[Rfam]
RNA sequence: GUCCUCAGGAGAAAAUUCAUAGCACUAAAUGCCUUCAUAAAAAAAGACAGAAAGUUGGGAAGGUCUGAGACUAGGGCCUCCACCCGCAGCCCUAGCAGGGCUCUCCCUGAGCCUGGGGAGGUGAGCUCCCAGAGAGCAGGGCUCCUCGUGAGGGCAGAAUGGGCAGGAGAAGCCGGUGCCUCCAGGCGGUCUGGCGGAUGCCUCCCUAACCGGAGCUUGGAACAGACUCACGGCCAGCCAAGCAAGUUCAAUGGCUGAGGUGAGGCAACGAGAGCCUCAUAACCCAAUUCAGACUACUCUACCCGGCC
Numbered sequence: 001g002u003c004c005u006c007a008g009g010a011g012a013a014a015a016u017u018c019a020u021a022g023c024a025c026u027a028a029a030u031g032c033c034u035u036c037a038u039a040a041a042a043a044a045a046g047a048c049a050g051a052a053a054g055u056u057g058g059g060a061a062g063g064u065c066u067g068a069g070a071c072u073a074g075g076g077c078c079u080c081c082a083c084c085c086g087c088a089g090c091c092c093u094a095g096c097a098g099g100g101c102u103c104u105c106c107c108u109g110a111g112c113c114u115g116g117g118g119a120g121g122u123g124a125g126c127u128c129c130c131a132g133a134g135a136g137c138a139g140g141g142c143u144c145c146u147c148g149u150g151a152g153g154g155c156a157g158a159a160u161g162g163g164c165a166g167g168a169g170a171a172g173c174c175g176g177u178g179c180c181u182c183c184a185g186g187c188g189g190u191c192u193g194g195c196g197g198a199u200g201c202c203u204c205c206c207u208a209a210c211c212g213g214a215g216c217u218u219g220g221a222a223c224a225g226a227c228u229c230a231c232g233g234c235c236a237g238c239c240a241a242g243c244a245a246g247u248u249c250a251a252u253g254g255c256u257g258a259g260g261u262g263a264g265g266c267a268a269c270g271a272g273a274g275c276c277u278c279a280u281a282a283c284c285c286a287a288u289u290c291a292g293a294c295u296a297c298u299c300u301a302c303c304c305g306g307c308c
Stems, first nucleotide, its partner, number of pairs: 001308001003306002011302001013300001016259004031048001033046003065292005075235004088102005103120006121231005127225001141216005260280007